ylbH leader: a 117-nucleotide RNA from Bacillus benzoevorans. Rfam describes the family as follows. This family is a putative regulatory RNA structure that is found upstream of the ylbH gene in B. subtilis and related low GC Gram-positive bacteria. It scores 110 bits against the family's covariance model.
RNA sequence: AAUAAAAAAGCCCUGCAGAUUUUCUGCAGGGUCCUUCUAUAUCCUUACGGAUUGAAGGUAAAGGGAGAGGAGAAACCGGAGGAAGAACUUAUGGGGAAACGUAAGUCUUCUCCGCGG
Numbered sequence: 001a002a003u004a005a006a007a008a009a010g011c012c013c014u015g016c017a018g019a020u021u022u023u024c025u026g027c028a029g030g031g032u033c034c035u036u037c038u039a040u041a042u043c044c045u046u047a048c049g050g051a052u053u054g055a056a057g058g059u060a061a062a063g064g065g066a067g068a069g070g071a072g073a074a075a076c077c078g079g080a081g082g083a084a085g086a087a088c089u090u091a092u093g094g095g096g097a098a099a100c101g102u103a104a105g106u107c108u109u110c111u112c113c114g115c116g117g
Stems, first nucleotide, its partner, number of pairs: 011031009032065005041052004077114004082110004087106005

The organism belongs to Bacillus, within Bacteria. The pairing is the family consensus, mapped onto this sequence.